[Rfam]
RNA sequence: GCUGAUGAUGAUAUAAUCCAACUUGUUUGAGGUGUUGUGGAGCCAAGCCCCUGUCUUCAGGGAGAACCUACUUGGUAAAACUACAUUCAUAUGACAUCUAUGGAUUUAACUGAGGC
Numbered sequence: 001g002c003u004g005a006u007g008a009u010g011a012u013a014u015a016a017u018c019c020a021a022c023u024u025g026u027u028u029g030a031g032g033u034g035u036u037g038u039g040g041a042g043c044c045a046a047g048c049c050c051c052u053g054u055c056u057u058c059a060g061g062g063a064g065a066a067c068c069u070a071c072u073u074g075g076u077a078a079a080a081c082u083a084c085a086u087u088c089a090u091a092u093g094a095c096a097u098c099u100a101u102g103g104a105u106u107u108a109a110c111u112g113a114g115g116c
Stems, first nucleotide, its partner, number of pairs: 001116003049062005
A member of the RNA family "Small nucleolar RNA Z278" from Cicer arietinum, 116 nucleotides long. The source organism's lineage runs through Eukaryota, Tracheophyta, fabids, Papilionoideae and Cicer. snoZ278 is a C/D box small nucleolar RNA. Its methylation guide targets have not been reported. A search with the family's covariance model found it, with a score of 55 bits. The base pairs follow the family's consensus structure, which was predicted with PFOLD. Rfam links the family to the GO terms nucleolus and RNA processing.